[Rfam]
RNA sequence: CAAAGAGGUUAUUAUUCAUUUCGUAUAUGUUUGAUGAUAUGGUUCAAACGUUUCUACCAGGAUGCCGUAAACUGCCUGACUACGAAUGUAUAAUGGUUAUUG
Numbered sequence: 001c002a003a004a005g006a007g008g009u010u011a012u013u014a015u016u017c018a019u020u021u022c023g024u025a026u027a028u029g030u031u032u033g034a035u036g037a038u039a040u041g042g043u044u045c046a047a048a049c050g051u052u053u054c055u056a057c058c059a060g061g062a063u064g065c066c067g068u069a070a071a072c073u074g075c076c077u078g079a080c081u082a083c084g085a086a087u088g089u090a091u092a093a094u095g096g097u098u099a100u101u102g
Base pairs, nucleotide, nucleotide: 020086021085022084023083024082025081029049030048031047032046033045034044058078059077060076061075064072
RNA: Purine riboswitch aptamer